[Rfam]
The family of this 78-nucleotide sequence from Mauremys mutica is "Mammalian CPEB3 ribozyme". The family's consensus secondary structure is taken from published work. Lineage of the source: Eukaryota > Eumetazoa > Euteleostomi > Tetrapoda > Mauremys. It scores 79 bits against the family's covariance model.
RNA sequence: GAAGAUCUUCCUGGGGCCAUACCAGAAGCAUUCACAUUGUAGCCCCUGUCAGAUUCUUAUGAAUCUGUGAAUUCUGCU
Numbered sequence: 001g002a003a004g005a006u007c008u009u010c011c012u013g014g015g016g017c018c019a020u021a022c023c024a025g026a027a028g029c030a031u032u033c034a035c036a037u038u039g040u041a042g043c044c045c046c047u048g049u050c051a052g053a054u055u056c057u058u059a060u061g062a063a064u065c066u067g068u069g070a071a072u073u074c075u076g077c078u
Base pairs, nucleotide, nucleotide: 013046014045015044016043017042021078023076024075025074026073027072028040029039030038050067051066052065053064054063055062056061